[Rfam]
RNA: Potassium channel RNA editing signal
Organism: Lates calcarifer
RNA sequence: GUUGGCUAUGGGGACAUGUACCCUGUGACCAUUGGAGGGAAGAUUGUGGGCUCGCUGUGCGCCAUCGCCGGCGUGUUGACCAUCGCCCUGCCAGUGCCGGUCAUUGUGUCCAAC
Numbered sequence: 001g002u003u004g005g006c007u008a009u010g011g012g013g014a015c016a017u018g019u020a021c022c023c024u025g026u027g028a029c030c031a032u033u034g035g036a037g038g039g040a041a042g043a044u045u046g047u048g049g050g051c052u053c054g055c056u057g058u059g060c061g062c063c064a065u066c067g068c069c070g071g072c073g074u075g076u077u078g079a080c081c082a083u084c085g086c087c088c089u090g091c092c093a094g095u096g097c098c099g100g101u102c103a104u105u106g107u108g109u110c111c112a113a114c
Stems, first nucleotide, its partner, number of pairs: 001114002004111002007108005013102003018097004037077002040074001049063003